Rfam assigns this 151-nucleotide RNA sequence from Stegodyphus mimosarum to the family "U12 minor spliceosomal RNA". Gene Ontology terms of the family: U12 snRNP, mRNA branch site recognition and pre-mRNA branch point binding. Lineage of the source: Eukaryota > Metazoa > Ecdysozoa > Entelegynae > Stegodyphus. The pairing is the family consensus, mapped onto this sequence.
[Rfam]
RNA sequence: GUGCCUUAAACUAAUGAGUAAGGAAAAUAACGUGCCUUGGUGACGCUUGGCACUACCAAGCAUCUCUUGGUAUUAAUUUUUGCUGGGGUACAGGUCGUCCCUGCGUGGUCUGCCUACUUUAGCGGGCUGCUGGGUUGUUGUGAUCUGCCCC
Numbered sequence: 001g002u003g004c005c006u007u008a009a010a011c012u013a014a015u016g017a018g019u020a021a022g023g024a025a026a027a028u029a030a031c032g033u034g035c036c037u038u039g040g041u042g043a044c045g046c047u048u049g050g051c052a053c054u055a056c057c058a059a060g061c062a063u064c065u066c067u068u069g070g071u072a073u074u075a076a077u078u079u080u081u082g083c084u085g086g087g088g089u090a091c092a093g094g095u096c097g098u099c100c101c102u103g104c105g106u107g108g109u110c111u112g113c114c115u116a117c118u119u120u121a122g123c124g125g126g127c128u129g130c131u132g133g134g135u136u137g138u139u140g141u142g143a144u145c146u147g148c149c150c151c
Stems, first nucleotide, its partner, number of pairs: 004023005032053005039046001055071005085151005092146007102134001105130003109126005